[Rfam]
RNA sequence: AGAGGUCACAAGUUUGAGGCCAUAGCAGAAGCACUCAUGUCAUGGCCCUGGCAGAUUCCAAUGAAUCUGUGAAUUCUGCU
Numbered sequence: 001a002g003a004g005g006u007c008a009c010a011a012g013u014u015u016g017a018g019g020c021c022a023u024a025g026c027a028g029a030a031g032c033a034c035u036c037a038u039g040u041c042a043u044g045g046c047c048c049u050g051g052c053a054g055a056u057u058c059c060a061a062u063g064a065a066u067c068u069g070u071g072a073a074u075u076c077u078g079c080u
Stems, first nucleotide, its partner, number of pairs: 016048001018047004024080007031043001052069007
Dot-bracket structure: ...............[.[[[[..((((((((...........)]]]]]...(((((((....)))))))....)))))))
RNA: Mammalian CPEB3 ribozyme